[Rfam]
RNA sequence: ACAGGCUUAUACAGAAUCGUUGUCACGUACUGUUGAAGAACAAGAAACGAAUCAACAUAUCUCA
Numbered sequence: 001a002c003a004g005g006c007u008u009a010u011a012c013a014g015a016a017u018c019g020u021u022g023u024c025a026c027g028u029a030c031u032g033u034u035g036a037a038g039a040a041c042a043a044g045a046a047a048c049g050a051a052u053c054a055a056c057a058u059a060u061c062u063c064a
Stems, first nucleotide, its partner, number of pairs: 007043002010040001012038001028059002031057006
RNA: Coronavirus 3' UTR pseudoknot